[Rfam]
RNA sequence: AGACGAUGACGAUUCAGUGAUAAGGUCUCGUUCGUCGUAAUGGCCUCUAGGGGCCUUGCCGACCACUCUGUUAUAUCACCACCCAUAAACCGAGUCU
Dot-bracket structure: ((((..........................................(....).........................................))))
The family of this 97-nucleotide sequence from Kingdonia uniflora is "Small nucleolar RNA Z43".
Gene Ontology terms of the family: RNA processing and nucleolus.
Rfam classes the family as a C/D-box small nucleolar RNA.